[Rfam]
RNA sequence: GUGUUAUCGUGAGUUCCCUUCAAGCACUUCACGUGGCACUUUUUCAAGGCCUAUUGUGAAGUGUUUGGGGGAACUCUUGGUGUCAU
Numbered sequence: 001g002u003g004u005u006a007u008c009g010u011g012a013g014u015u016c017c018c019u020u021c022a023a024g025c026a027c028u029u030c031a032c033g034u035g036g037c038a039c040u041u042u043u044u045c046a047a048g049g050c051c052u053a054u055u056g057u058g059a060a061g062u063g064u065u066u067g068g069g070g071g072a073a074c075u076c077u078u079g080g081u082g083u084c085a086u
Stems, first nucleotide, its partner, number of pairs: 005082005011076010022066012036052001
mir-395 microRNA precursor family: an 86-nucleotide RNA from Oryza meyeriana.
Its family is annotated with miRNA-mediated post-transcriptional gene silencing and RISC complex in the Gene Ontology.
NCBI's taxonomy places the organism under Eukaryota, Streptophyta, Tracheophyta, Oryzoideae, Oryza meyeriana.
The family has 25 seed sequences and 2,798 matches in Rfam 15.1.
A reference for the family is Jones-Rhoades and Bartel (2004), "Computational Identification of Plant MicroRNAs and Their Targets, Including a Stress-Induced miRNA", Mol Cell.
mir-395 was identified in both Arabidopsis thaliana and Oryza sativa computationally and was later experimentally verified. mir-395 is thought to target mRNAs coding for ATP sulphurylases. The mature sequence is excised from the 3' arm of the hairpin.